[Rfam]
RNA sequence: UGCCAUUGCUAAGUCAAGUCUUCUUCCUGCGACUUUGUGUCGUGUUUUUCUCCAUGGAAGUUUGUCUGUUACAGCUCUGGCAGAUUGACGCUGGUCCGUGCCGAAUUUCAUUCUGAAGCUAGGCUGACCAGUUUUCGUUUUGAAGACUGGUCGUAAAGGGCUAAGCUGUGUUCUGUUUGUGAGUUGAGUGCUGCUUCUGCCUUGUUGGCGGCUUUGUAGCAGUCCUCUUAGUAACAUUUCACACAUCU
Numbered sequence: 001u002g003c004c005a006u007u008g009c010u011a012a013g014u015c016a017a018g019u020c021u022u023c024u025u026c027c028u029g030c031g032a033c034u035u036u037g038u039g040u041c042g043u044g045u046u047u048u049u050c051u052c053c054a055u056g057g058a059a060g061u062u063u064g065u066c067u068g069u070u071a072c073a074g075c076u077c078u079g080g081c082a083g084a085u086u087g088a089c090g091c092u093g094g095u096c097c098g099u100g101c102c103g104a105a106u107u108u109c110a111u112u113c114u115g116a117a118g119c120u121a122g123g124c125u126g127a128c129c130a131g132u133u134u135u136c137g138u139u140u141u142g143a144a145g146a147c148u149g150g151u152c153g154u155a156a157a158g159g160g161c162u163a164a165g166c167u168g169u170g171u172u173c174u175g176u177u178u179g180u181g182a183g184u185u186g187a188g189u190g191c192u193g194c195u196u197c198u199g200c201c202u203u204g205u206u207g208g209c210g211g212c213u214u215u216g217u218a219g220c221a222g223u224c225c226u227c228u229u230a231g232u233a234a235c236a237u238u239u240c241a242c243a244c245a246u247c248u
Stems, first nucleotide, its partner, number of pairs: 003080003017067002020064001023060005029043005091165002094161004100124003104120001106118004126152002131147007168242003174236003186227003192221004197211002200208002
RNA: Small nucleolar RNA snR191
Organism: Aspergillus thermomutatus